[Rfam]
RNA sequence: CUGUUAAUUGUGGGUGUAUUUAGUGUCGAAUGGGGUUCAUACCUUAAUUUGCCAAAACGGGACCUCUGUUGAGGUAUAAAAUUCUGAAAAGAAUUGAAUAUUCCGUACUAAGGUACAUCCGGAACGUCUAGAGACUACACGGCAAACCAAUUUUGGUGGUAUGAAUGGAUAGUCCCUAGUAACCAUCUAGGCAUCCCAUACAAAAUGGUAA
Number, nucleotide and partner (000 for none) at each position: 001c000002u210003g209004u208005u207006a206007a000008u204009u203010g000011u000012g000013g027014g026015u025016g000017u000018a000019u000020u000021u071022a070023g069024u000025g015026u014027c013028g000029a000030a199031u198032g197033g196034g195035g194036u165037u164038c163039a162040u161041a160042c159043c158044u000045u000046a000047a000048u000049u000050u000051g174052c000053c172054a000055a000056a000057a106058c105059g104060g103061g000062a083063c074064c073065u072066c000067u000068g000069u023070u022071g021072a065073g064074g063075u000076a000077u000078a000079a000080a000081a000082u000083u062084c000085u000086g000087a000088a000089a000090a000091g000092a000093a000094u000095u000096g000097a000098a000099u000100a000101u000102u000103c060104c059105g058106u057107a127108c126109u000110a000111a000112g000113g000114u000115a000116c000117a000118u000119c000120c000121g000122g000123a000124a000125c000126g108127u107128c000129u000130a000131g000132a000133g170134a000135c000136u142137a000138c000139a000140c000141g000142g136143c000144a000145a000146a157147c156148c155149a000150a154151u000152u000153u000154u150155g148156g147157u146158g043159g042160u041161a040162u039163g038164a037165a036166u000167g000168g000169a000170u133171a000172g053173u000174c051175c000176c190177u189178a188179g187180u000181a000182a000183c000184c000185a000186u000187c179188u178189a177190g176191g000192c000193a000194u035195c034196c033197c032198a031199u030200a000201c000202a000203a009204a008205a000206u006207g005208g004209u003210a002211a000